The family of this 35-nucleotide sequence is "DUF805b RNA".
[Rfam]
RNA sequence: UAGGCGGAUGCCGAAAAGCCUUAAAUGAGUAGGCU
Number, nucleotide and partner (000 for none) at each position: 001u000002a021003g020004g019005c018006g000007g000008a000009u000010g034011c033012c032013g000014a000015a000016a000017a000018g005019c004020c003021u002022u000023a000024a000025a000026u000027g000028a000029g000030u000031a000032g012033g011034c010035u000